This 67-nucleotide RNA sequence from Actinia tenebrosa belongs to the Rfam family "Selenocysteine insertion sequence 1".
For this family Rfam cites "A novel RNA structural motif in the selenocysteine insertion element of eukaryotic selenoprotein mRNAs" (Walczak et al., RNA, 1996).
[Rfam]
RNA sequence: UUCGCUCGUAUGAUGAAUUUGCCUGAAAGGAAUAAUUCUGGGCAAAAUCUGAUUUAAAGUUGGCGAA
Numbered sequence: 001u002u003c004g005c006u007c008g009u010a011u012g013a014u015g016a017a018u019u020u021g022c023c024u025g026a027a028a029g030g031a032a033u034a035a036u037u038c039u040g041g042g043c044a045a046a047a048u049c050u051g052a053u054u055u056a057a058a059g060u061u062g063g064c065g066a067a
Stems, first nucleotide, its partner, number of pairs: 001067005015049002018046007030038003
Dot-bracket structure: (((((.........((.(((((((.....(((...))).))))))).)).............)))))